[Rfam]
RNA sequence: GGAUGUGAGGGCGAUCUGGCUGCGACAUCUGUUACCCCAUUGAUCGCUAGGGUUGAUUCGGCUGAUCUGGCUAGGCGGGUGUCCCCUUCCUCCCUCACCGCUCCACGUGGGUCCCUCCCGAAGCUCUGCGCUCGGUGGAAGUGGCCAUCUCCCCGGUAGAAGAGAAGGUGUACGAGUAGCUGCACUCCCUGCUAGAACCUCCAAACAAGCUCAAGGCCCAUUUGUAGGAGUUACGUAGGGAAGUCAAAUGCUCCGACUUCACACACAUCCAAAUGAGGCACUGCACGUGGCAGUCUGCCUUUCUUU
Numbered sequence: 001g002g003a004u005g006u007g008a009g010g011g012c013g014a015u016c017u018g019g020c021u022g023c024g025a026c027a028u029c030u031g032u033u034a035c036c037c038c039a040u041u042g043a044u045c046g047c048u049a050g051g052g053u054u055g056a057u058u059c060g061g062c063u064g065a066u067c068u069g070g071c072u073a074g075g076c077g078g079g080u081g082u083c084c085c086c087u088u089c090c091u092c093c094c095u096c097a098c099c100g101c102u103c104c105a106c107g108u109g110g111g112u113c114c115c116u117c118c119c120g121a122a123g124c125u126c127u128g129c130g131c132u133c134g135g136u137g138g139a140a141g142u143g144g145c146c147a148u149c150u151c152c153c154c155g156g157u158a159g160a161a162g163a164g165a166a167g168g169u170g171u172a173c174g175a176g177u178a179g180c181u182g183c184a185c186u187c188c189c190u191g192c193u194a195g196a197a198c199c200u201c202c203a204a205a206c207a208a209g210c211u212c213a214a215g216g217c218c219c220a221u222u223u224g225u226a227g228g229a230g231u232u233a234c235g236u237a238g239g240g241a242a243g244u245c246a247a248a249u250g251c252u253c254c255g256a257c258u259u260c261a262c263a264c265a266c267a268u269c270c271a272a273a274u275g276a277g278g279c280a281c282u283g284c285a286c287g288u289g290g291c292a293g294u295c296u297g298c299c300u301u302u303c304u305u306u
Stems, first nucleotide, its partner, number of pairs: 001104003005098007013089002018086002024083010037070003042067004046062003112165002114162001116160002118135004123131002136156001138154001143152002179249001181247001185243002187240006199230004205225005271306003275301005280294005